This 82-nucleotide RNA from Smithella sp. SCADC belongs to the Rfam family "Group II catalytic intron D1-D4-1". Gene Ontology term of the family: Group II intron splicing. The base pairs follow the family's consensus structure. About the family: Group II introns are found in rRNA, tRNA and mRNA of organelles in fungi, plants and protists, and also in mRNA in bacteria.

RNA sequence: CUAUUCCCGUCGGGAGGCGGGGAAAGGGGCGGUCAGAAGUCAGCAGAGGUCAUAGGAGCGUCAACGACCAGACGCGAAGGAC
Numbered sequence: 001c002u003a004u005u006c007c008c009g010u011c012g013g014g015a016g017g018c019g020g021g022g023a024a025a026g027g028g029g030c031g032g033u034c035a036g037a038a039g040u041c042a043g044c045a046g047a048g049g050u051c052a053u054a055g056g057a058g059c060g061u062c063a064a065c066g067a068c069c070a071g072a073c074g075c076g077a078a079g080g081a082c
Stems, first nucleotide, its partner, number of pairs: 001027002004023008040047002049082003058075005